[Rfam]
RNA sequence: ACAAUUCUAUAGUAAUUCACUCAUAUAAUCGCAGGGAUAGGGCCUGCAAGUUUCUACCGAUUUGCCGUAAACAAAUCGACUAUGGGUGGCAAAUGAUUGGAA
Numbered sequence: 001a002c003a004a005u006u007c008u009a010u011a012g013u014a015a016u017u018c019a020c021u022c023a024u025a026u027a028a029u030c031g032c033a034g035g036g037a038u039a040g041g042g043c044c045u046g047c048a049a050g051u052u053u054c055u056a057c058c059g060a061u062u063u064g065c066c067g068u069a070a071a072c073a074a075a076u077c078g079a080c081u082a083u084g085g086g087u088g089g090c091a092a093a094u095g096a097u098u099g100g101a102a
Stems, first nucleotide, its partner, number of pairs: 018088008029049001031047005058078007
Notes: Rfam assigns this 102-nucleotide sequence from Bacillus sp. FJAT-49711 to the family "Purine riboswitch aptamer". The organism belongs to Bacillus, within Bacteria.